[Rfam]
RNA sequence: UACACCUAUAUGAUGAAGCCAAUACGGAUGUAAAUGGGCUUAUGGCCCUACUGUCCGAGAGCGCAUUUAAAAAAACAUGUGGAUCCUUCCGUUGCCUUCCUUCUGAUAUACCUAU
Numbered sequence: 001u002a003c004a005c006c007u008a009u010a011u012g013a014u015g016a017a018g019c020c021a022a023u024a025c026g027g028a029u030g031u032a033a034a035u036g037g038g039c040u041u042a043u044g045g046c047c048c049u050a051c052u053g054u055c056c057g058a059g060a061g062c063g064c065a066u067u068u069a070a071a072a073a074a075a076c077a078u079g080u081g082g083a084u085c086c087u088u089c090c091g092u093u094g095c096c097u098u099c100c101u102u103c104u105g106a107u108a109u110a111c112c113u114a115u
Stems, first nucleotide, its partner, number of pairs: 004113001025091004